mir-132 microRNA precursor family: an 82-nucleotide sequence from Saimiri boliviensis. The literature on the family includes a 2005 paper in Genes Dev by Chen et al., "The developmental miRNA profiles of zebrafish as determined by small RNA cloning". The source organism's lineage runs through Eukaryota, Sarcopterygii, Mammalia, Primates and Saimiri boliviensis. The family has 50 seed sequences and 1,023 matches in Rfam 15.1.
RNA sequence: GGUGGUGGGCACCUGUAAUGGCUUUCGAUUGUUACUGUGGGAACUGGAGGUAACAGUCUACAGCCAUGGUCGCCCCGCAGCA
Numbered sequence: 001g002g003u004g005g006u007g008g009g010c011a012c013c014u015g016u017a018a019u020g021g022c023u024u025u026c027g028a029u030u031g032u033u034a035c036u037g038u039g040g041g042a043a044c045u046g047g048a049g050g051u052a053a054c055a056g057u058c059u060a061c062a063g064c065c066a067u068g069g070u071c072g073c074c075c076c077g078c079a080g081c082a
Base pairs, nucleotide, nucleotide: 012069013068019066020065021064022063027058028057029056030055031054032053033052034051035050036049